Source information: This 77-nucleotide RNA from Acanthosepion pharaonis belongs to the Rfam family "isrJ Hfq binding RNA". It scores 43 bits against the family's covariance model. Taxonomically the source falls in Acanthosepion (Eukaryota, Eumetazoa, Mollusca, Decapodiformes).
[Rfam]
RNA sequence: UGAAAAACUGAAAUCAUUGUCUUAACAAAAAUCGUCAAUAAAACAAAAGUUUUUCUACCGAUUAUCCGUUGGAAAAU
Numbered sequence: 001u002g003a004a005a006a007a008c009u010g011a012a013a014u015c016a017u018u019g020u021c022u023u024a025a026c027a028a029a030a031a032u033c034g035u036c037a038a039u040a041a042a043a044c045a046a047a048a049g050u051u052u053u054u055c056u057a058c059c060g061a062u063u064a065u066c067c068g069u070u071g072g073a074a075a076a077u
Stems, first nucleotide, its partner, number of pairs: 016039004021034001051076007059068002
Dot-bracket structure: ...............((((.(............).))))...........(((((((.((......)).))))))).

The family's consensus secondary structure was predicted with RNAalifold. The family's RNA type in Rfam is small RNA. A reference for the family is Padalon-Brauch et al. (2008), "Small RNAs encoded within genetic islands of Salmonella typhimurium show host-induced expression and role in virulence", Nucleic Acids Res.